[Rfam]
RNA sequence: AACCACGGAUCGCCGAGUCCUGCUGCCGUGGUCGGUGCCCCUGGCAUCACAUGCAGCAGGAACGGGGGACCCACUCGCGGAGCGCAAGCUCCUAGGGGUCAAGUCCUCCAGGUCGCCCGCGGGCGGCCGAGGGCCGGGUGAACCUCCACCCGAACCCGACAGCUCACCUCGUAGGCGCGCAGAGGACAUGA
Numbered sequence: 001a002a003c004c005a006c007g008g009a010u011c012g013c014c015g016a017g018u019c020c021u022g023c024u025g026c027c028g029u030g031g032u033c034g035g036u037g038c039c040c041c042u043g044g045c046a047u048c049a050c051a052u053g054c055a056g057c058a059g060g061a062a063c064g065g066g067g068g069a070c071c072c073a074c075u076c077g078c079g080g081a082g083c084g085c086a087a088g089c090u091c092c093u094a095g096g097g098g099u100c101a102a103g104u105c106c107u108c109c110a111g112g113u114c115g116c117c118c119g120c121g122g123g124c125g126g127c128c129g130a131g132g133g134c135c136g137g138g139u140g141a142a143c144c145u146c147c148a149c150c151c152g153a154a155c156c157c158g159a160c161a162g163c164u165c166a167c168c169u170c171g172u173a174g175g176c177g178c179g180c181a182g183a184g185g186a187c188a189u190g191a
Base pairs, nucleotide, nucleotide: 011177012176013175014174018061019060020059021058022057023056024055025054026053062172063171064170065169066168067167072095096157097156098155104133105132106131107130136151137150138149139148
RNA: c-di-AMP riboswitch aptamer (ydaO/yuaA leader)
Organism: Marihabitans asiaticum